[Rfam]
This 169-nucleotide sequence from Klebsiella sp. RIT-PI-d belongs to the Rfam family "SraG RNA". A search with the family's covariance model found it, with a score of 148 bits. The family's RNA type in Rfam is small RNA. On this family, see Argaman et al., Curr Biol 2001: "Novel small RNA-encoding genes in the intergenic regions of Escherichia coli". Rfam links the family to the GO terms mRNA binding and sRNA-mediated gene silencing. The family's consensus secondary structure was predicted with PFOLD. From the family's description: This RNA was discovered in E. coli during a large scale screen. Evidence was found for specific cleavage of this RNA. The source organism's lineage runs through Bacteria, Pseudomonadati, Gammaproteobacteria, Enterobacterales and Klebsiella.

RNA sequence: CUUCUGCGCAUCCUCGCGACUAAUGACAACCCUGACCCAUGAUUUGGGUAAAGCCUCUCAUUAGCCGCGCGAACCUCUGCGACGGAAAAUCAUUCAUAGCAACAAUACAUUAGUUUCCAGCGAAUUGCUGCGUUCCGAUUGAAAAAAGGGGCCCUGAAGGCCCCUUUUC
Numbered sequence: 001c002u003u004c005u006g007c008g009c010a011u012c013c014u015c016g017c018g019a020c021u022a023a024u025g026a027c028a029a030c031c032c033u034g035a036c037c038c039a040u041g042a043u044u045u046g047g048g049u050a051a052a053g054c055c056u057c058u059c060a061u062u063a064g065c066c067g068c069g070c071g072a073a074c075c076u077c078u079g080c081g082a083c084g085g086a087a088a089a090u091c092a093u094u095c096a097u098a099g100c101a102a103c104a105a106u107a108c109a110u111u112a113g114u115u116u117c118c119a120g121c122g123a124a125u126u127g128c129u130g131c132g133u134u135c136c137g138a139u140u141g142a143a144a145a146a147a148g149g150g151g152c153c154c155u156g157a158a159g160g161c162c163c164c165u166u167u168u169c
Stems, first nucleotide, its partner, number of pairs: 002087005008080003015071004020064007094123002148164006